[Rfam]
Rfam assigns this 55-nucleotide RNA from Mycolicibacterium anyangense to the family "L31-Actinobacteria ribosomal protein leader". The family's RNA type in Rfam is cis-regulatory leader. The organism belongs to Mycobacterium (subgen. Mycolicibacterium), within Bacteria.
RNA sequence: CAGGUACCGGUUCACGCCCGCUGACCAGGGAUUUCCCGAGGGCGACCCGGCGACC
Numbered sequence: 001c002a003g004g005u006a007c008c009g010g011u012u013c014a015c016g017c018c019c020g021c022u023g024a025c026c027a028g029g030g031a032u033u034u035c036c037c038g039a040g041g042g043c044g045a046c047c048c049g050g051c052g053a054c055c
Stems, first nucleotide, its partner, number of pairs: 003055003007050004015044005021038001023036001